The family of this 96-nucleotide RNA from Winkia neuii is "Bacterial small signal recognition particle RNA". Rfam describes the family as follows. The signal recognition particle (SRP) is a universally conserved ribonucleoprotein involved in the co-translational targeting of proteins to membranes.

RNA sequence: GCCGAUCCCUCAUGUGACGGUAUCACCUGAACCUCCCCAGGGCCGGAAGGCAGCAAGGAUAGGGUAGCUCUGCCGGGUGCGUGAGGGAUCCUUAUU
Numbered sequence: 001g002c003c004g005a006u007c008c009c010u011c012a013u014g015u016g017a018c019g020g021u022a023u024c025a026c027c028u029g030a031a032c033c034u035c036c037c038c039a040g041g042g043c044c045g046g047a048a049g050g051c052a053g054c055a056a057g058g059a060u061a062g063g064g065u066a067g068c069u070c071u072g073c074c075g076g077g078u079g080c081g082u083g084a085g086g087g088a089u090c091c092u093u094a095u096u
Base pairs, nucleotide, nucleotide: 004090005089006088007087008086009085010084011083012082013081014080015077018075019074020073021072022071023067025065026064027063028062034059035058036057042051043050044049
The organism belongs to Winkia neuii, within Bacteria. Pairs were carried over by alignment from the consensus structure, which is taken from published work.